Record summary
The record is a 114-nucleotide sequence from Rodentolepis nana, which matches "Potassium channel RNA editing signal" in Rfam.
[Rfam]
RNA sequence: GUGGGCUAUGGUGACAUGCGACCUGUGACGGUAGGUGGGAAGUUGGUUGGUUCUCUGUGUGCCAUUGCUGGUGUCUUGACCAUUGCCCUCCCGGUGCCUGUUAUUGUCUCCAAC
Numbered sequence: 001g002u003g004g005g006c007u008a009u010g011g012u013g014a015c016a017u018g019c020g021a022c023c024u025g026u027g028a029c030g031g032u033a034g035g036u037g038g039g040a041a042g043u044u045g046g047u048u049g050g051u052u053c054u055c056u057g058u059g060u061g062c063c064a065u066u067g068c069u070g071g072u073g074u075c076u077u078g079a080c081c082a083u084u085g086c087c088c089u090c091c092c093g094g095u096g097c098c099u100g101u102u103a104u105u106g107u108c109u110c111c112a113a114c
Stems, first nucleotide, its partner, number of pairs: 001114002004111002008107004013102004018097003037077004049063003
It is annotated as a cis-regulatory element.